Rfam assigns this 78-nucleotide RNA sequence from Bradyrhizobium sp. STM 3843 to the family "Makes More Granules Regulator RNA (mmgR)". SuhB later renamed mmgR (makes more granules regulator) was a putative non-coding RNA found multiple times in the Agrobacterium tumefaciens genome and related alpha-proteobacteria. The family's RNA type in Rfam is small RNA. A reference for the family is Corbino et al. (2005), "Evidence for a second class of S-adenosylmethionine riboswitches and other regulatory RNA motifs in alpha-proteobacteria", Genome Biol.
RNA sequence: UACCGCUGCCCUCCUUGGGCGUUUCCUCCCUAGACUUGGGCCGCUUGUCAUCACAAGCGGCCCUUUUUUUUGCGGCAG
Numbered sequence: 001u002a003c004c005g006c007u008g009c010c011c012u013c014c015u016u017g018g019g020c021g022u023u024u025c026c027u028c029c030c031u032a033g034a035c036u037u038g039g040g041c042c043g044c045u046u047g048u049c050a051u052c053a054c055a056a057g058c059g060g061c062c063c064u065u066u067u068u069u070u071u072g073c074g075g076c077a078g
Stems, first nucleotide, its partner, number of pairs: 008020004038063009
The family is grouped with related families in Rfam's "suhB sRNA clan".